[Rfam]
RNA sequence: UGGUGAAUUACUGGGCAUUUACUCCAUUGGCAGGAGGCUUAUGACCACAAUUUCACUGAGAGUGAAGGUAAUAUAAGCUCACUGCCAGAGGAGAUUUGCCCGGCAAUUUAUCG
Numbered sequence: 001u002g003g004u005g006a007a008u009u010a011c012u013g014g015g016c017a018u019u020u021a022c023u024c025c026a027u028u029g030g031c032a033g034g035a036g037g038c039u040u041a042u043g044a045c046c047a048c049a050a051u052u053u054c055a056c057u058g059a060g061a062g063u064g065a066a067g068g069u070a071a072u073a074u075a076a077g078c079u080c081a082c083u084g085c086c087a088g089a090g091g092a093g094a095u096u097u098g099c100c101c102g103g104c105a106a107u108u109u110a111u112c113g
Stems, first nucleotide, its partner, number of pairs: 005109005011103007022093004028087006036079001

Rfam assigns this 113-nucleotide RNA sequence from Eucalyptus grandis to the family "mir-399 microRNA precursor family". A search with the family's covariance model found it, with a score of 61 bits. Lineage of the source: Eukaryota > Spermatophyta > Mesangiospermae > Gunneridae > Eucalyptus. Rfam links the family to the GO terms RISC complex and miRNA-mediated post-transcriptional gene silencing. The family has 13 seed sequences and 2,396 matches in Rfam 15.1. mir-399 was identified in both Arabidopsis thaliana and Oryza sativa computationally and was later experimentally verified. mir-399 is thought to target mRNAs coding for a phosphatase transporter. The mature sequence is excised from the 3' arm of the hairpin.